[Rfam]
RNA sequence: UUCCAUCUUCGGGGCAGGGUGAAAUUCCCGACCGACGGUGAUGAACCCACUUGGUGUUCUUAGUCCGUGACCCAGGAGGCGCUACGAGAGUGUUUAACUCCAUGCCGAUCGGUGGACCUGGUGAAACUCCGGGACCGACAGUUACAGUCUGGAUGGGAGAAGAUGUAG
Numbered sequence: 001u002u003c004c005a006u007c008u009u010c011g012g013g014g015c016a017g018g019g020u021g022a023a024a025u026u027c028c029c030g031a032c033c034g035a036c037g038g039u040g041a042u043g044a045a046c047c048c049a050c051u052u053g054g055u056g057u058u059c060u061u062a063g064u065c066c067g068u069g070a071c072c073c074a075g076g077a078g079g080c081g082c083u084a085c086g087a088g089a090g091u092g093u094u095u096a097a098c099u100c101c102a103u104g105c106c107g108a109u110c111g112g113u114g115g116a117c118c119u120g121g122u123g124a125a126a127c128u129c130c131g132g133g134a135c136c137g138a139c140a141g142u143u144a145c146a147g148u149c150u151g152g153a154u155g156g157g158a159g160a161a162g163a164u165g166u167a168g
Stems, first nucleotide, its partner, number of pairs: 004165007017029003031148002033137002035068004063135002072112002117133005139151003